[Rfam]
Nucleotides: 090
Stems, first nucleotide, its partner, number of pairs: 006083014036055007
Number, partner (000 for none) and nucleotide at each position: 001000u002000u003000a004000g005000g006083u007082u008081u009080u010079c011078u012077u013076c014075a015074u016073u017072u018071u019070c020000u021000u022000c023000u024000a025000g026000a027000u028000u029000u030000u031000u032000c033000u034000u035000g036055g037054a038053c039052u040051u041050u042049u043000g044000u045000u046000g047000u048000u049042g050041a051040a052039g053038g054037u055036c056000g057000a058000u059000g060000g061000a062000u063000a064000u065000g066000a067000u068000a069000u070019g071018a072017a073016g074015a075014u076013g077012a078011a079010g080009a081008a082007g083006a084000a085000g086000a087000g088000a089000a090000g